The family of this 352-nucleotide RNA sequence from a Lachnospiraceae bacterium is "Bacterial RNase P class A".
RNA sequence: CAGGCAGGCCAGGUGAUCGCCGGCGGGUUUACCCGCGGGAGGAAAGUCCGGGCUUCGCAGGGCAGGAUACCGGCUAACGGCCGGCUGGGGUAACCCACGGGAUAGCGCAACAGAAAACAUGUAGCCGAUGGACGGCUUGCCGUCACAGGUCAUAGCGAAAUGGCAGUGUAAGAGACUACCGGUCGACUGGUAACAGGAGGCGCAUUGCAAGCCCUAUCCGAAGCAAGACCAAACAGAAAGCGUUAGAUUUGCCCGAUCUGCUUUCAGGUAGGUUGCUUGAGGCGUAUGGCAACAUACGUCCUAGAAAGAUGAUCACCAAAUACAGAACCCGGCUUAUAGGUCUGCCUGUAAA
Numbered sequence: 001c002a003g004g005c006a007g008g009c010c011a012g013g014u015g016a017u018c019g020c021c022g023g024c025g026g027g028u029u030u031a032c033c034c035g036c037g038g039g040a041g042g043a044a045a046g047u048c049c050g051g052g053c054u055u056c057g058c059a060g061g062g063c064a065g066g067a068u069a070c071c072g073g074c075u076a077a078c079g080g081c082c083g084g085c086u087g088g089g090g091u092a093a094c095c096c097a098c099g100g101g102a103u104a105g106c107g108c109a110a111c112a113g114a115a116a117a118c119a120u121g122u123a124g125c126c127g128a129u130g131g132a133c134g135g136c137u138u139g140c141c142g143u144c145a146c147a148g149g150u151c152a153u154a155g156c157g158a159a160a161u162g163g164c165a166g167u168g169u170a171a172g173a174g175a176c177u178a179c180c181g182g183u184c185g186a187c188u189g190g191u192a193a194c195a196g197g198a199g200g201c202g203c204a205u206u207g208c209a210a211g212c213c214c215u216a217u218c219c220g221a222a223g224c225a226a227g228a229c230c231a232a233a234c235a236g237a238a239a240g241c242g243u244u245a246g247a248u249u250u251g252c253c254c255g256a257u258c259u260g261c262u263u264u265c266a267g268g269u270a271g272g273u274u275g276c277u278u279g280a281g282g283c284g285u286a287u288g289g290c291a292a293c294a295u296a297c298g299u300c301c302u303a304g305a306a307a308g309a310u311g312a313u314c315a316c317c318a319a320a321u322a323c324a325g326a327a328c329c330c331g332g333c334u335u336a337u338a339g340g341u342c343u344g345c346c347u348g349u350a351a352a
Stems, first nucleotide, its partner, number of pairs: 001348010011337001012317007020039002023036005044335003048332005053223004060254004065219005070084005085099001086097004100214002105212002107208003122154002124150003131144005162180002165177003181203001182201003187196003227274004236265006245259005281300008

It is annotated as a ribozyme.
A search with the family's covariance model found it, with a score of 306 bits.
Ribonuclease P (RNase P) is a ubiquitous endoribonuclease, found in archaea, bacteria and eukarya as well as chloroplasts and mitochondria.
Pairs were carried over by alignment from the consensus structure, which is taken from published work.